[Rfam]
RNA sequence: ACUUAUACAUGACAACAUAUUGGGUUGUCGACCUGCCUCUGGACCUAUCCUUAGACUAUAAGC
Numbered sequence: 001a002c003u004u005a006u007a008c009a010u011g012a013c014a015a016c017a018u019a020u021u022g023g024g025u026u027g028u029c030g031a032c033c034u035g036c037c038u039c040u041g042g043a044c045c046u047a048u049c050c051u052u053a054g055a056c057u058a059u060a061a062g063c
Stems, first nucleotide, its partner, number of pairs: 002062006008035001011029006022045002030036001037054002041050003
Overview
This 63-nucleotide RNA from Mesoplasma florum belongs to the Rfam family "2dG-I riboswitch aptamer (M. florum)". Pairs were carried over by alignment from the consensus structure, which is taken from published work. The source organism's lineage runs through Bacteria, Mollicutes, Entomoplasmatales, Entomoplasmataceae and Mesoplasma florum. For this family Rfam cites "Guanine riboswitch variants from Mesoplasma florum selectively recognize 2'-deoxyguanosine" (Kim et al., Proc Natl Acad Sci U S A, 2007).